The family of this 101-nucleotide RNA from Prunus armeniaca is "Small nucleolar RNA snoR99". On this family, see Marker et al., Curr Biol 2002: "Experimental RNomics: identification of 140 candidates for small non-messenger RNAs in the plant Arabidopsis thaliana".

[Rfam]
RNA sequence: GUGUAAUUGAGGUUAUACUUGUCCCAAUACAAAUUUCCAUUCUCUUAACUUUGUCAGCUGGGCUCAAUCACAUGCAGCUGAUUUUCAUGAGUGGGACAUUA
Numbered sequence: 001g002u003g004u005a006a007u008u009g010a011g012g013u014u015a016u017a018c019u020u021g022u023c024c025c026a027a028u029a030c031a032a033a034u035u036u037c038c039a040u041u042c043u044c045u046u047a048a049c050u051u052u053g054u055c056a057g058c059u060g061g062g063c064u065c066a067a068u069c070a071c072a073u074g075c076a077g078c079u080g081a082u083u084u085u086c087a088u089g090a091g092u093g094g095g096a097c098a099u100u101a
Base pairs, nucleotide, nucleotide: 036095037094038093039092040091041090053082054081055080056079057078058077059076060075

Description
Gene Ontology terms of the family: nucleolus and RNA processing. The organism belongs to Prunus, within Eukaryota.